[Rfam]
RNA sequence: CCGCCCGUCGCUACUACCGAUUGAAUGUUUUAGUGAGGUAUUUGGAUGGAACCUCUGGAGGGUAACCUCUCAGUGCUGUUCUAGAAGAUUCCCAAACUUGAGCAUUUAGAGGAAGUAAAAGUCGUAACAAGGUUUCCGUAGGUGAACCUGCGGAAGGAUCAUUA
Numbered sequence: 001c002c003g004c005c006c007g008u009c010g011c012u013a014c015u016a017c018c019g020a021u022u023g024a025a026u027g028u029u030u031u032a033g034u035g036a037g038g039u040a041u042u043u044g045g046a047u048g049g050a051a052c053c054u055c056u057g058g059a060g061g062g063u064a065a066c067c068u069c070u071c072a073g074u075g076c077u078g079u080u081c082u083a084g085a086a087g088a089u090u091c092c093c094a095a096a097c098u099u100g101a102g103c104a105u106u107u108a109g110a111g112g113a114a115g116u117a118a119a120a121g122u123c124g125u126a127a128c129a130a131g132g133u134u135u136c137c138g139u140a141g142g143u144g145a146a147c148c149u150g151c152g153g154a155a156g157g158a159u160c161a162u163u164a
Base pairs, nucleotide, nucleotide: 001131003128006124007123009121012117013116014115015114017112018111021108023107024106025105026104027103028102029101030100032098033097034096037093038092040090042088043087047083048082049081050080051079053075055073056072057071058069059068060067061066133156134155135154136153137152138151139150140149141148142147